[Rfam]
RNA sequence: GUGGGAGGAAGCUCACUGUAGAGGUCACAAACUGAGUGCCAGUCACUCGACCAAUCACCUCGGGGAAGGUCUGAGACAAGAGCCAAUGGUUACCCUCGCAGGGCAUCACCUGACUCGGGUGAGCGAGCGAACAGCAAUAAUUGGCCACCUCGUGCCUGUUCUUCCGCAGGAGAAGCCGGGAGGGAGCAGCUUCUCAGCUCCUAUCCGGUGGAUGCGGUGCACGAUACGGCUUGGAAUCACUCGCGGCUGGCGGAUGAGUGCGAUGUGUGAGGUGGAGCACUGCUCCAGAACCCAAUUCAGACUACUCUCCCCCCAC
Numbered sequence: 001g002u003g004g005g006a007g008g009a010a011g012c013u014c015a016c017u018g019u020a021g022a023g024g025u026c027a028c029a030a031a032c033u034g035a036g037u038g039c040c041a042g043u044c045a046c047u048c049g050a051c052c053a054a055u056c057a058c059c060u061c062g063g064g065g066a067a068g069g070u071c072u073g074a075g076a077c078a079a080g081a082g083c084c085a086a087u088g089g090u091u092a093c094c095c096u097c098g099c100a101g102g103g104c105a106u107c108a109c110c111u112g113a114c115u116c117g118g119g120u121g122a123g124c125g126a127g128c129g130a131a132c133a134g135c136a137a138u139a140a141u142u143g144g145c146c147a148c149c150u151c152g153u154g155c156c157u158g159u160u161c162u163u164c165c166g167c168a169g170g171a172g173a174a175g176c177c178g179g180g181a182g183g184g185a186g187c188a189g190c191u192u193c194u195c196a197g198c199u200c201c202u203a204u205c206c207g208g209u210g211g212a213u214g215c216g217g218u219g220c221a222c223g224a225u226a227c228g229g230c231u232u233g234g235a236a237u238c239a240c241u242c243g244c245g246g247c248u249g250g251c252g253g254a255u256g257a258g259u260g261c262g263a264u265g266u267g268u269g270a271g272g273u274g275g276a277g278c279a280c281u282g283c284u285c286c287a288g289a290a291c292c293c294a295a296u297u298c299a300g301a302c303u304a305c306u307c308u309c310c311c312c313c314c315a316c
Base pairs, nucleotide, nucleotide: 001316002315003314004313007310008309009308012271013270014269015268016267021061022060023059024058034048035047036046037045038044071300072299073298074297075296081248082247083246084245091105093103094102095101106122107121108120109119110118111117123244124243125242126241127240129238144230145229146228273287274286275285276284277283278282
The family of this 316-nucleotide RNA sequence from Kryptolebias marmoratus is "Nuclear RNase P". The match comes from Rfam's covariance-model search (213 bits). Pairs were carried over by alignment from the consensus structure, which is taken from published work. On this family, see Frank et al., RNA 2000: "Phylogenetic-comparative analysis of the eukaryal ribonuclease P RNA". Rfam's curators write: Ribonuclease P (RNase P) is a ubiquitous endoribonuclease, found in archaea, bacteria and eukarya as well as chloroplasts and mitochondria.